[Rfam]
RNA sequence: UAUGGUAAAAUAGUAACGUUUCGUAUAUUUCUGCUAGUAUGGUGCAGAUGUUUCUACCCCAAGCCAGACACUUUGGGACUACGAAUCAGUUUUUGUAAUGA
Numbered sequence: 001u002a003u004g005g006u007a008a009a010a011u012a013g014u015a016a017c018g019u020u021u022c023g024u025a026u027a028u029u030u031c032u033g034c035u036a037g038u039a040u041g042g043u044g045c046a047g048a049u050g051u052u053u054c055u056a057c058c059c060c061a062a063g064c065c066a067g068a069c070a071c072u073u074u075g076g077g078a079c080u081a082c083g084a085a086u087c088a089g090u091u092u093u094u095g096u097a098a099u100g101a
Base pairs, nucleotide, nucleotide: 018087020085021084022083023082024081025080030048031047032046033045034044058077059076060075061074062073063071

A member of the RNA family "Purine riboswitch aptamer" from Amedibacillus dolichus, 101 nucleotides long.
The family's consensus secondary structure is taken from published work.